RNA: Eukaryotic large subunit ribosomal RNA, nucleotides 2839 to 3173
Organism: Ostreococcus sp. 'lucimarinus'
RNA sequence: GUGCUCCAAGAGUAAUCGGAUUCAGUACGAGAGGAACCAUCCGUUCUCACAUUUGGUAUUGCGCUCGGCUGAAAAGCCGAUGGCGCGAAGCUACGUGAGACAUGCUAAUAGCUGAACGCCUCUAAGCUAGAAGCAGUCCUCGAUGGAGCACUAUCUACCGGUCCGUCGUUAACCGACUACGUAUAGUUUAUGAAUAGCAUUGCGACCGCAAUUUUGAACGGCCGGACCGAUACAUCCUUUGUAGACGACUUAAAUGCGCGACGGGGUACUGUAAAUAGCAGAGUAGCCUUGCUGCUACGAUCUAUUGAGGUUCAUCCCUUGUCGCUAAGAUGUGU
Numbered sequence: 001g002u003g004c005u006c007c008a009a010g011a012g013u014a015a016u017c018g019g020a021u022u023c024a025g026u027a028c029g030a031g032a033g034g035a036a037c038c039a040u041c042c043g044u045u046c047u048c049a050c051a052u053u054u055g056g057u058a059u060u061g062c063g064c065u066c067g068g069c070u071g072a073a074a075a076g077c078c079g080a081u082g083g084c085g086c087g088a089a090g091c092u093a094c095g096u097g098a099g100a101c102a103u104g105c106u107a108a109u110a111g112c113u114g115a116a117c118g119c120c121u122c123u124a125a126g127c128u129a130g131a132a133g134c135a136g137u138c139c140u141c142g143a144u145g146g147a148g149c150a151c152u153a154u155c156u157a158c159c160g161g162u163c164c165g166u167c168g169u170u171a172a173c174c175g176a177c178u179a180c181g182u183a184u185a186g187u188u189u190a191u192g193a194a195u196a197g198c199a200u201u202g203c204g205a206c207c208g209c210a211a212u213u214u215u216g217a218a219c220g221g222c223c224g225g226a227c228c229g230a231u232a233c234a235u236c237c238u239u240u241g242u243a244g245a246c247g248a249c250u251u252a253a254a255u256g257c258g259c260g261a262c263g264g265g266g267u268a269c270u271g272u273a274a275a276u277a278g279c280a281g282a283g284u285a286g287c288c289u290u291g292c293u294g295c296u297a298c299g300a301u302c303u304a305u306u307g308a309g310g311u312u313c314a315u316c317c318c319u320u321g322u323c324g325c326u327a328a329g330a331u332g333u334g335u
Base pairs, nucleotide, nucleotide: 001151002150003149004148005147006146007145010141011140012139015045017043018042019041020040021039046099047098048097049096050095054093055092056091060087061086062085063084064083065080066079067078068077069076070075103135104134109129110128111127112126113125159229160228161227162226163225164224165223232333233332234331235330236329238252241249258325259324260323261322262321263320264318265317266316268311269310275305276304277303278302280301283298284297285296286295287294